Rfam assigns this 91-nucleotide RNA sequence from Streptomyces collinus to the family "Streptomyces RNA 3202".
RNA sequence: CCACGUCCUGACGCGACCCCCCCAGCGCCGGGACGUUCCCGAGCCGGGCUCGGCGCCCCACCCCCCCCUGGGCGCCGGGUCCGGCUUCUUC
Numbered sequence: 001c002c003a004c005g006u007c008c009u010g011a012c013g014c015g016a017c018c019c020c021c022c023c024a025g026c027g028c029c030g031g032g033a034c035g036u037u038c039c040c041g042a043g044c045c046g047g048g049c050u051c052g053g054c055g056c057c058c059c060a061c062c063c064c065c066c067c068c069u070g071g072g073c074g075c076c077g078g079g080u081c082c083g084g085c086u087u088c089u090u091c
Stems, first nucleotide, its partner, number of pairs: 005034006012027003041087018

The organism belongs to Streptomyces collinus, within Bacteria.
Identified by deep sequencing of transcriptome at the end of exponential growth phase. Appears smaller on northern blot than sequencing transcript. This indicates processing step. Streptomyces specific.
Rfam classes the family as a small RNA.
A reference for the family is Vockenhuber et al. (2011), "Deep sequencing-based identification of small non-coding RNAs in Streptomyces coelicolor", RNA Biol.